[Rfam]
RNA sequence: CGGGGUGUAGCGCAGAGGCAGGCGCGCCGGUCUCCAAAACCGGAAGACGUCGGUUCGAAUCCGGCCGCCCCGC
Numbered sequence: 001c002g003g004g005g006u007g008u009a010g011c012g013c014a015g016a017g018g019c020a021g022g023c024g025c026g027c028c029g030g031u032c033u034c035c036a037a038a039a040c041c042g043g044a045a046g047a048c049g050u051c052g053g054u055u056c057g058a059a060u061c062c063g064g065c066c067g068c069c070c071c072g073c
Stems, first nucleotide, its partner, number of pairs: 001072007010025004027043005049065005
RNA: tRNA